[Rfam]
RNA sequence: CGAGAUAACUCUCUCUAAGGAACUCGGCAAAAUGACCCCGUAACUUUGGAAGAAGGGGUACCACUGUAAAAGGUGGUUGCAAUAAAGAGGCCCAGGCGACUGUUUACCAAAAACAUAGGUCUCCGCAAAGUCGUAAGACGAAGUAUGGGGGCUGACGCCUGCCCAGUGCCGGAAGGUUAAGGAAGUUGGUCAGCCGAAAGGUAAAGCUAGCGACCGAAGCCCCGGUGAACGGCGGCCGUAACUAUAACGGUCCUAAGGUAGCGAAAUUCCUUGUCGGGUAAGUUCCGACCCGCACGAAAGGCGUAACGAUCUGGGCGCUGUCUCGGAGAGAGGCUCG
Numbered sequence: 001c002g003a004g005a006u007a008a009c010u011c012u013c014u015c016u017a018a019g020g021a022a023c024u025c026g027g028c029a030a031a032a033u034g035a036c037c038c039c040g041u042a043a044c045u046u047u048g049g050a051a052g053a054a055g056g057g058g059u060a061c062c063a064c065u066g067u068a069a070a071a072g073g074u075g076g077u078u079g080c081a082a083u084a085a086a087g088a089g090g091c092c093c094a095g096g097c098g099a100c101u102g103u104u105u106a107c108c109a110a111a112a113a114c115a116u117a118g119g120u121c122u123c124c125g126c127a128a129a130g131u132c133g134u135a136a137g138a139c140g141a142a143g144u145a146u147g148g149g150g151g152c153u154g155a156c157g158c159c160u161g162c163c164c165a166g167u168g169c170c171g172g173a174a175g176g177u178u179a180a181g182g183a184a185g186u187u188g189g190u191c192a193g194c195c196g197a198a199a200g201g202u203a204a205a206g207c208u209a210g211c212g213a214c215c216g217a218a219g220c221c222c223c224g225g226u227g228a229a230c231g232g233c234g235g236c237c238g239u240a241a242c243u244a245u246a247a248c249g250g251u252c253c254u255a256a257g258g259u260a261g262c263g264a265a266a267u268u269c270c271u272u273g274u275c276g277g278g279u280a281a282g283u284u285c286c287g288a289c290c291c292g293c294a295c296g297a298a299a300g301g302c303g304u305a306a307c308g309a310u311c312u313g314g315g316c317g318c319u320g321u322c323u324c325g326g327a328g329a330g331a332g333g334c335u336c337g
Base pairs, nucleotide, nucleotide: 001337002336003335004334009332010331011330012329013328014327015326016325018323019322020321035059036058037057038056039055044049060077061076062075063074064073065072078082090316091315092314093313094312095311096310097308098307101115102114103113118153119152120151121150122149123148124147125146126143130139131138132137156303157302158301159300161233162232163231166230167229168226169225170224171223172222175221176220177219181215182214185211186210187209188208189207190206193202194201234252235251236250237249238248239247253257263290273289274288275287276286277285278284
A member of the RNA family "Bacterial large subunit ribosomal RNA" from Lusitaniella coriacea, 337 nucleotides of a longer RNA. NCBI's taxonomy places the organism under Bacteria, Bacillati, Cyanophyceae, Lusitaniellaceae, Lusitaniella coriacea. The match comes from Rfam's covariance-model search (2747 bits). The family has 102 seed sequences and 51,934 matches in Rfam 15.1.